RNA sequence: UUUUGGCACUAGCACAUUUUUGCUUUUAUUUGUAGUUUUUGAGCAAUUAUGUGUAGUGCCAAUAUGGGAGA
Numbered sequence: 001u002u003u004u005g006g007c008a009c010u011a012g013c014a015c016a017u018u019u020u021u022g023c024u025u026u027u028a029u030u031u032g033u034a035g036u037u038u039u040u041g042a043g044c045a046a047u048u049a050u051g052u053g054u055a056g057u058g059c060c061a062a063u064a065u066g067g068g069a070g071a
Stems, first nucleotide, its partner, number of pairs: 001064001003062008012054006020046006

Shown here is a 71-nucleotide sequence from Podargus strigoides, a member of the family "mir-96 microRNA precursor family". A reference for the family is Mourelatos et al. (2002), "miRNPs: a novel class of ribonucleoproteins containing numerous microRNAs", Genes Dev. Pairs were carried over by alignment from the consensus structure, which was predicted with RNAalifold. Gene Ontology terms of the family: miRNA-mediated post-transcriptional gene silencing and RISC complex.